[Rfam]
RNA sequence: UCCCCCAGCACUGUACCCAGGGUCUGACUGCAGACAUUGCACCUGGAGCUGACCCCAAAUAAAUCUCCCU
Numbered sequence: 001u002c003c004c005c006c007a008g009c010a011c012u013g014u015a016c017c018c019a020g021g022g023u024c025u026g027a028c029u030g031c032a033g034a035c036a037u038u039g040c041a042c043c044u045g046g047a048g049c050u051g052a053c054c055c056c057a058a059a060u061a062a063a064u065c066u067c068c069c070u
Base pairs, nucleotide, nucleotide: 006051007050008049009048017046018045019044020043022035023034024033025032026031
This 70-nucleotide RNA from Vireo altiloquus belongs to the Rfam family "U1A polyadenylation inhibition element (PIE)". Rfam links the family to the GO term regulation of mRNA polyadenylation. It scores 59 bits against the family's covariance model. It is annotated as a cis-regulatory element. Taxonomically the source falls in Vireo (Eukaryota, Eumetazoa, Sarcopterygii, Sauropsida). On this family, see Clerte and Hall, Biochemistry 2004: "Global and Local Dynamics of the U1A Polyadenylation Inhibition Element (PIE) RNA and PIE RNA-U1A Complexes". Rfam's curators write: This family represents the U1A polyadenylation inhibition element (PIE). PIE is a regulatory RNA which is responsible for the regulation of the length of the polyA tail of the U1A pre-mRNA. The PIE is located in the U1A mRNA 3' UTR. PIE adopts a U-shaped structure, with binding sites for a single U1A protein at each bend and when complexed with the two proteins it blocks activity of poly(A) polymerase (PAP), and inhibits its activity.